Notes
The record is a 119-nucleotide RNA from Cnephaeus nilssonii, which matches "Small nucleolar RNA SNORA77" in Rfam. Lineage of the source: Eukaryota > Metazoa > Amniota > Theria > Cnephaeus. ACA63 (SNORA77) is a member of the H/ACA class of snoRNAs that guide the sites of modification of uridines to pseudouridines. This snoRNA was identified by computational screening and its expression in mouse experimentally verified by Northern blot and primer extension analysis. ACA63 is proposed to guide the pseudouridylation of 18S rRNA U814. It is annotated as an H/ACA-box small nucleolar RNA. Pairs were carried over by alignment from the consensus structure, which was predicted with RNAalifold. Gene Ontology terms of the family: nucleolus and RNA processing. The literature on the family includes a 2006 paper in RNA by Schattner et al., "A computational screen for mammalian pseudouridylation guide H/ACA RNAs".
RNA sequence: GCAGACGCACUGCGCCCGGCCGCAGUCCCGGGCGGGGCUUUUCCAUCGCCACGGAAACAUUCCAGGCGCUGGGACCGCCUUGACGGGUCAAGGGCGCUGCCACUGCCCGGGACACCGUU
Numbered sequence: 001g002c003a004g005a006c007g008c009a010c011u012g013c014g015c016c017c018g019g020c021c022g023c024a025g026u027c028c029c030g031g032g033c034g035g036g037g038c039u040u041u042u043c044c045a046u047c048g049c050c051a052c053g054g055a056a057a058c059a060u061u062c063c064a065g066g067c068g069c070u071g072g073g074a075c076c077g078c079c080u081u082g083a084c085g086g087g088u089c090a091a092g093g094g095c096g097c098u099g100c101c102a103c104u105g106c107c108c109g110g111g112a113c114a115c116c117g118u119u
Stems, first nucleotide, its partner, number of pairs: 001049002004047002012038002015036004020031003061111003065107003068103001071100001073098001076096005